[Rfam]
RNA: R2 RNA element
RNA sequence: AAAAAAUAAACGAGACCCGUAACACCAAAAUGCCACAGCUGCGCAGACGUAACACCAGUGAUUUUCCUGCGCACUUAUGCGCUUGGUAAGGGAGGAGGUUUUAGUCCGUAGGGUACUGACAUGACUCAGUACAGUCGGGCAUGCCGCAACGUACGGGCGUUGCGGUAUCCAUGAGGAUUUCCUCCUUCCCUCGUAA
Numbered sequence: 001a002a003a004a005a006a007u008a009a010a011c012g013a014g015a016c017c018c019g020u021a022a023c024a025c026c027a028a029a030a031u032g033c034c035a036c037a038g039c040u041g042c043g044c045a046g047a048c049g050u051a052a053c054a055c056c057a058g059u060g061a062u063u064u065u066c067c068u069g070c071g072c073a074c075u076u077a078u079g080c081g082c083u084u085g086g087u088a089a090g091g092g093a094g095g096a097g098g099u100u101u102u103a104g105u106c107c108g109u110a111g112g113g114u115a116c117u118g119a120c121a122u123g124a125c126u127c128a129g130u131a132c133a134g135u136c137g138g139g140c141a142u143g144c145c146g147c148a149a150c151g152u153a154c155g156g157g158c159g160u161u162g163c164g165g166u167a168u169c170c171a172u173g174a175g176g177a178u179u180u181c182c183u184c185c186u187u188c189c190c191u192c193g194u195a196a
Base pairs, nucleotide, nucleotide: 040073041072042071043070044069045068078195079194080193081192090190091189092188093187094186096183097182098181104140105139106138107137108136113132114131115130116129117128118127142167143166144165145164146163147162